A member of the RNA family "Small nucleolar RNA U109" from Eurystomus gularis, 143 nucleotides long. For this family Rfam cites "A novel experimental approach for systematic identification of box H/ACA snoRNAs from eukaryotes" (Gu et al., Nucleic Acids Res, 2005). Pairs were carried over by alignment from the consensus structure, which was predicted with WAR.
[Rfam]
RNA sequence: CUGCAUGUUAAAAAAAAAAAAAAUUCUGCUCCUUAUUCCCAUAAGGAGCAUGAAUAUAUACAACAUGCUACAGAAAACAAGGAGAAUUCAGGGCUGCCAGUCUUGCAGUAAAGGCUGAGUGGUAGUAUAGGUCUCCUACAUCU
Numbered sequence: 001c002u003g004c005a006u007g008u009u010a011a012a013a014a015a016a017a018a019a020a021a022a023a024u025u026c027u028g029c030u031c032c033u034u035a036u037u038c039c040c041a042u043a044a045g046g047a048g049c050a051u052g053a054a055u056a057u058a059u060a061c062a063a064c065a066u067g068c069u070a071c072a073g074a075a076a077a078c079a080a081g082g083a084g085a086a087u088u089c090a091g092g093g094c095u096g097c098c099a100g101u102c103u104u105g106c107a108g109u110a111a112a113g114g115c116u117g118a119g120u121g122g123u124a125g126u127a128u129a130g131g132u133c134u135c136c137u138a139c140a141u142c143u
Stems, first nucleotide, its partner, number of pairs: 003068006025052001027050006081136004093123002097119001098117007